[Rfam]
RNA sequence: AACGGGAUAACCGAAAACCGUAUAAAAGAGUAGGAC
Numbered sequence: 001a002a003c004g005g006g007a008u009a010a011c012c013g014a015a016a017a018c019c020g021u022a023u024a025a026a027a028g029a030g031u032a033g034g035a036c
Base pairs, nucleotide, nucleotide: 002021003020004019005018011034012033
RNA: DUF805b RNA